[Rfam]
RNA sequence: UGCAACUCCCAUAAAAGGAGUAGUUCCCUAACCCGGAGCUACUUUGCCACAUUCUGAAUCC
Numbered sequence: 001u002g003c004a005a006c007u008c009c010c011a012u013a014a015a016a017g018g019a020g021u022a023g024u025u026c027c028c029u030a031a032c033c034c035g036g037a038g039c040u041a042c043u044u045u046g047c048c049a050c051a052u053u054c055u056g057a058a059u060c061c
Base pairs, nucleotide, nucleotide: 017045018044019043020042021041022040023039024038025037026036027035
RNA: Plastid-psbN 5UTR RNA
Organism: Digitaria exilis